The record is a 58-nucleotide RNA from Sphingobium indicum, which matches "terC RNA" in Rfam. Rfam classes the family as a cis-regulatory element. A search with the family's covariance model found it, with a score of 58 bits.

RNA sequence: UAUGCGGGCCGGGCCCCUCUGGCGUUCAUCUUUGAUGACGUGAUGUCGGACCGCAUCG
Numbered sequence: 001u002a003u004g005c006g007g008g009c010c011g012g013g014c015c016c017c018u019c020u021g022g023c024g025u026u027c028a029u030c031u032u033u034g035a036u037g038a039c040g041u042g043a044u045g046u047c048g049g050a051c052c053g054c055a056u057c058g
Stems, first nucleotide, its partner, number of pairs: 006052002009049004022041004027037003